[Rfam]
RNA sequence: UUGUUCACAUCUCCUUAUCACUUUUCCAGCCCAGCUAUCUAUUCUGAAUCCGUUGGACGGAGAACUGAUAAGGGCAUGUGAAUGA
Numbered sequence: 001u002u003g004u005u006c007a008c009a010u011c012u013c014c015u016u017a018u019c020a021c022u023u024u025u026c027c028a029g030c031c032c033a034g035c036u037a038u039c040u041a042u043u044c045u046g047a048a049u050c051c052g053u054u055g056g057a058c059g060g061a062g063a064a065c066u067g068a069u070a071a072g073g074g075c076a077u078g079u080g081a082a083u084g085a
Stems, first nucleotide, its partner, number of pairs: 012074009022064006030056002

Rfam assigns this 85-nucleotide RNA from Lepisosteus oculatus to the family "mir-184 microRNA precursor family". The family's consensus secondary structure was predicted with PFOLD. It scores 84 bits against the family's covariance model.